Shown here is a 78-nucleotide RNA from Alligator mississippiensis, a member of the family "Mammalian CPEB3 ribozyme". Pairs were carried over by alignment from the consensus structure, which is taken from published work. The source organism's lineage runs through Eukaryota, Gnathostomata, Teleostomi, Sarcopterygii and Alligator.
RNA sequence: AGUUUGCAAGUUUGCAGCCACAGCAGAAGCGCUCAUGGCACAACCAUGUCAGAUUUCAACAAAUCUGCAAAUUCUGCU
Numbered sequence: 001a002g003u004u005u006g007c008a009a010g011u012u013u014g015c016a017g018c019c020a021c022a023g024c025a026g027a028a029g030c031g032c033u034c035a036u037g038g039c040a041c042a043a044c045c046a047u048g049u050c051a052g053a054u055u056u057c058a059a060c061a062a063a064u065c066u067g068c069a070a071a072u073u074c075u076g077c078u
Stems, first nucleotide, its partner, number of pairs: 013046002017044001022078007029041001031039001050067007